[Rfam]
RNA sequence: UGUCUAUGAUGGACUUUAGCGGAAGUGCUCUGUUCGUGUACUUUAAAUUUGUUAAAAUUUAAGAGCGGAGUGUCCGGCUCGAUCCCUGCGAGUUGAAUAUUGGACACUUGAGUAAUCAGUGUUUUUCCAAAUUCUGGUAAUAUUUAACAUAACCACUGGAGGGAAGCAAUUCAGCACAGUAAUGUUUAUCGUAGUGGAGGCGAAUCCGGAUGGCACUUUGUUUGUUAAUAAGUUUAAUGGUAUCUAUUGUCACAACUCUAAAUU
Number, nucleotide and partner (000 for none) at each position: 001u000002g014003u013004c012005u000006a000007u000008g000009a000010u000011g000012g004013a003014c002015u000016u000017u261018a000019g259020c000021g257022g256023a000024a000025g253026u252027g251028c000029u249030c000031u000032g247033u246034u000035c000036g243037u242038g241039u000040a000041c000042u000043u237044u236045a235046a234047a233048u232049u231050u230051g229052u228053u227054a226055a225056a000057a000058u000059u000060u000061a000062a000063g000064a222065g221066c220067g219068g218069a217070g216071u215072g214073u213074c209075c208076g207077g206078c000079u203080c202081g201082a000083u198084c197085c196086c194087u193088g192089c191090g190091a189092g000093u136094u000095g134096a133097a132098u131099a000100u129101u000102g124103g123104a122105c121106a120107c119108u118109u000110g117111a116112g000113u000114a000115a000116u111117c110118a108119g107120u106121g105122u104123u103124u102125u000126u000127c000128c000129a100130a000131a098132u097133u096134c095135u000136g093137g141138u000139a000140a000141u137142a000143u000144u188145u000146a186147a185148c184149a183150u182151a000152a000153c000154c000155a180156c179157u178158g177159g000160a000161g000162g000163g172164a171165a170166g000167c000168a000169a000170u165171u164172c163173a000174g000175c000176a000177c158178a157179g156180u155181a000182a150183u149184g148185u147186u146187u000188a144189u091190c090191g089192u088193a087194g086195u000196g085197g084198a083199g000200g000201c081202g080203a079204a000205u000206c077207c076208g075209g074210a000211u000212g000213g073214c072215a071216c070217u069218u068219u067220g066221u065222u064223u000224g000225u055226u054227a053228a052229u051230a050231a049232g048233u047234u046235u045236a044237a043238u000239g000240g000241u038242a037243u036244c000245u000246a033247u032248u000249g029250u000251c027252a026253c025254a000255a000256c022257u021258c000259u019260a000261a017262a000263u000264u000
RNA: Fungal signal recognition particle RNA
Organism: Candida maltosa